[Rfam]
RNA sequence: CCCAAGCCUAGCCUGACGAGGUGAAAGCCAAGAACCUUCCUUGGUUGGCUUAGGGGUUCUAUUGAAGG
Numbered sequence: 001c002c003c004a005a006g007c008c009u010a011g012c013c014u015g016a017c018g019a020g021g022u023g024a025a026a027g028c029c030a031a032g033a034a035c036c037u038u039c040c041u042u043g044g045u046u047g048g049c050u051u052a053g054g055g056g057u058u059c060u061a062u063u064g065a066a067g068g
Base pairs, nucleotide, nucleotide: 001055002054003053004051005050006049007048008047011022012021013020014019028044029043030042031041032040035068036067037066038065039064
int-alpA RNA: a 68-nucleotide RNA from Polynucleobacter kasalickyi. A search with the family's covariance model found it, with a score of 47 bits. The source organism's lineage runs through Bacteria, Pseudomonadati, Burkholderiales, Burkholderiaceae and Polynucleobacter. It is annotated as a small RNA.